[Rfam]
RNA: Purine riboswitch aptamer
Nucleotides: 102
Stems, first nucleotide, its partner, number of pairs: 018088008030048006058078007
Number, partner (000 for none) and nucleotide at each position: 001000a002000a003000a004000a005000g006000a007000a008000g009000a010000u011000c012000a013000a014000a015000u016000g017000u018088c019087a020086c021085u022084c023083g024082u025081a026000u027000a028000u029000a030048c031047u032046c033045a034044g035043a036000a037000a038000u039000a040000a041000g042000g043035u044034c045033u046032g047031a048030g049000a050000g051000u052000c053000u054000c055000u056000a057000c058078c059077a060076a061075g062074a063073u064072a065000c066000c067000g068000u069000a070000a071000a072064u073063a074062u075061c076060u077059u078058g079000a080000c081025u082024a083023u084022g085021g086020g087019u088018g089000g090000a091000a092000u093000u094000a095000u096000u097000a098000u099000a100000u101000c102000a